Description
The record is a 303-nucleotide RNA from Colletotrichum shisoi, which matches "Group I catalytic intron" in Rfam. NCBI's taxonomy places the organism under Eukaryota, Fungi, Pezizomycotina, Glomerellaceae, Colletotrichum destructivum species complex. A search with the family's covariance model found it, with a score of 83 bits. Rfam 15.1 lists 5,602 matches to the family in 1,395 species. Gene Ontology term of the family: Group I intron splicing. Rfam's curators write: Group I catalytic introns are large self-splicing ribozymes. They catalyse their own excision from mRNA, tRNA and rRNA precursors in a wide range of organisms.

RNA sequence: CAAGCAGCGUAAAAGGCGUCUGCUAGUGGAACCACGCGUUCUGCGACACCAUCAAAUUGACGGGGAGUUUCUAAAGCUGAGCGCUACCAAGCAGGCGUCGAAAGACGACUGUGGCCGGGGUAAUGACCUAGGGUAUGGUAAAAACGCGCCAGAUAUUACAAUGAAUGAUCCGCAGCCAAGCCCUACGUCCGCCAGGAUAGGGGUGCAGUUCAACGACUAAACGGUGGUGGGUCCCGCGGGGAGUGCGUACUGCACACCCCCGCCGGGCUUAAGAUAUAGUCUGGCCGCCUGUGAAAGCAGGCG
Numbered sequence: 001c002a003a004g005c006a007g008c009g010u011a012a013a014a015g016g017c018g019u020c021u022g023c024u025a026g027u028g029g030a031a032c033c034a035c036g037c038g039u040u041c042u043g044c045g046a047c048a049c050c051a052u053c054a055a056a057u058u059g060a061c062g063g064g065g066a067g068u069u070u071c072u073a074a075a076g077c078u079g080a081g082c083g084c085u086a087c088c089a090a091g092c093a094g095g096c097g098u099c100g101a102a103a104g105a106c107g108a109c110u111g112u113g114g115c116c117g118g119g120g121u122a123a124u125g126a127c128c129u130a131g132g133g134u135a136u137g138g139u140a141a142a143a144a145c146g147c148g149c150c151a152g153a154u155a156u157u158a159c160a161a162u163g164a165a166u167g168a169u170c171c172g173c174a175g176c177c178a179a180g181c182c183c184u185a186c187g188u189c190c191g192c193c194a195g196g197a198u199a200g201g202g203g204u205g206c207a208g209u210u211c212a213a214c215g216a217c218u219a220a221a222c223g224g225u226g227g228u229g230g231g232u233c234c235c236g237c238g239g240g241g242a243g244u245g246c247g248u249a250c251u252g253c254a255c256a257c258c259c260c261c262g263c264c265g266g267g268c269u270u271a272a273g274a275u276a277u278a279g280u281c282u283g284g285c286c287g288c289c290u291g292u293g294a295a296a297g298c299a300g301g302c303g
Base pairs, nucleotide, nucleotide: 047229048228049227050226051225053223058174059173061172062171063170064169069165070164071163175209176208180204181203182202183201188197189196190195213282215281216280217279218278219277231268232267233266234265236263237262238261239260240259241258288301289300290299291298292297